[Rfam]
RNA sequence: GAGAAAUGAGGAGAACUGCAAAAAGUCUGAUGUCUUUGAUGACUGUCAGAUCCAACUCUGAUCUCACUUAUUUA
Numbered sequence: 001g002a003g004a005a006a007u008g009a010g011g012a013g014a015a016c017u018g019c020a021a022a023a024a025g026u027c028u029g030a031u032g033u034c035u036u037u038g039a040u041g042a043c044u045g046u047c048a049g050a051u052c053c054a055a056c057u058c059u060g061a062u063c064u065c066a067c068u069u070a071u072u073u074a
Base pairs, nucleotide, nucleotide: 001065002064003063004062

Shown here is a 74-nucleotide RNA sequence from Aquarana catesbeiana, a member of the family "Small nucleolar RNA SNORD19". Gene Ontology terms of the family: RNA processing and nucleolus. Taxonomically the source falls in Aquarana (Eukaryota, Metazoa, Deuterostomia, Vertebrata). On this family, see Huttenhofer et al., EMBO J 2001: "RNomics: an experimental approach that identifies 201 candidates for novel, small, non-messenger RNAs in mouse". The family has 22 seed sequences and 1,431 matches in Rfam 15.1. It scores 64 bits against the family's covariance model.